[Rfam]
RNA sequence: UUGAUUCUUCAGGGCAGGGUGCAAUUCCCUACCGGCGGUACAGCCCGCGAGCGGAUGCCAUUCGGCGGAAGCAUGAUUCGGUGAAAUUCCGAUGCCGACAGUAUAGUCUGGAUAAAAGAAGAAUGCG
Numbered sequence: 001u002u003g004a005u006u007c008u009u010c011a012g013g014g015c016a017g018g019g020u021g022c023a024a025u026u027c028c029c030u031a032c033c034g035g036c037g038g039u040a041c042a043g044c045c046c047g048c049g050a051g052c053g054g055a056u057g058c059c060a061u062u063c064g065g066c067g068g069a070a071g072c073a074u075g076a077u078u079c080g081g082u083g084a085a086a087u088u089c090c091g092a093u094g095c096c097g098a099c100a101g102u103a104u105a106g107u108c109u110g111g112a113u114a115a116a117a118g119a120a121g122a123a124u125g126c127g
Stems, first nucleotide, its partner, number of pairs: 004124007017029003031107002033097002035048004043095002051072002078092004099110003
Rfam assigns this 127-nucleotide RNA from Butyricicoccus sp. TM10-16AC to the family "FMN riboswitch aptamer (RFN element)".
The organism belongs to Butyricicoccus, within Bacteria.
It scores 112 bits against the family's covariance model.